[Rfam]
RNA: Small nucleolar RNA SNORA57
Organism: Orycteropus afer
RNA sequence: UUUUCUUUGCAGGGAGAGGACGGAGGUGGGUGUUGGGUGUGCGGGCCCCAUCUGUUUAUGUAUGAAAGCAGAGGGUAAGGGCUCCAGGCACCGCAGUGUCAUGUCAUUGGAGGCUUCCAUUCUGCUGAUUCUUUCCUUAAGCACAGGGACAAGG
Numbered sequence: 001u002u003u004u005c006u007u008u009g010c011a012g013g014g015a016g017a018g019g020a021c022g023g024a025g026g027u028g029g030g031u032g033u034u035g036g037g038u039g040u041g042c043g044g045g046c047c048c049c050a051u052c053u054g055u056u057u058a059u060g061u062a063u064g065a066a067a068g069c070a071g072a073g074g075g076u077a078a079g080g081g082c083u084c085c086a087g088g089c090a091c092c093g094c095a096g097u098g099u100c101a102u103g104u105c106a107u108u109g110g111a112g113g114c115u116u117c118c119a120u121u122c123u124g125c126u127g128a129u130u131c132u133u134u135c136c137u138u139a140a141g142c143a144c145a146g147g148g149a150c151a152a153g154g
Stems, first nucleotide, its partner, number of pairs: 001068005015055001017053003022048002094146001096144004107128004112123002